[Rfam]
RNA: SAM (S-adenosyl methionine) riboswitch aptamer
Organism: Rhodococcus sp. AD45
RNA sequence: GGUCAUGAGUACCAGCGUCAAGCCCCGGCUCGCUGGACGGCAACCCUCCAACCGCGGUGGGGUGCCCCGGGUGAUGACCAGGUCGCCUCGAGGCGAAACUGCGCAAUUGCAGCUUCACCGGAUUUCCAGGCGACAAGCGCGGGUC
Numbered sequence: 001g002g003u004c005a006u007g008a009g010u011a012c013c014a015g016c017g018u019c020a021a022g023c024c025c026c027g028g029c030u031c032g033c034u035g036g037a038c039g040g041c042a043a044c045c046c047u048c049c050a051a052c053c054g055c056g057g058u059g060g061g062g063u064g065c066c067c068c069g070g071g072u073g074a075u076g077a078c079c080a081g082g083u084c085g086c087c088u089c090g091a092g093g094c095g096a097a098a099c100u101g102c103g104c105a106a107u108u109g110c111a112g113c114u115u116c117a118c119c120g121g122a123u124u125u126c127c128a129g130g131c132g133a134c135a136a137g138c139g140c141g142g143g144u145c
Stems, first nucleotide, its partner, number of pairs: 001079004009038001012036005021030002039066003044062003048057002082134007090126004